[Rfam]
RNA sequence: AUCACAGCGUUCACUUCAUAGCGCACCAAUCUUUCGCCUUUUACUAAAGGUUGCCGUGAAUGGGACGCAUCAAUGUGACUCACACAAUUUUUUGGGAGCUCUGAGCUCC
Numbered sequence: 001a002u003c004a005c006a007g008c009g010u011u012c013a014c015u016u017c018a019u020a021g022c023g024c025a026c027c028a029a030u031c032u033u034u035c036g037c038c039u040u041u042u043a044c045u046a047a048a049g050g051u052u053g054c055c056g057u058g059a060a061u062g063g064g065a066c067g068c069a070u071c072a073a074u075g076u077g078a079c080u081c082a083c084a085c086a087a088u089u090u091u092u093u094g095g096g097a098g099c100u101c102u103g104a105g106c107u108c109c
Base pairs, nucleotide, nucleotide: 002078003077004076005075008067009066010065011064012063015060016059017058018057027053028052029051030050031049032048033047034046095109096108097107098106099105100104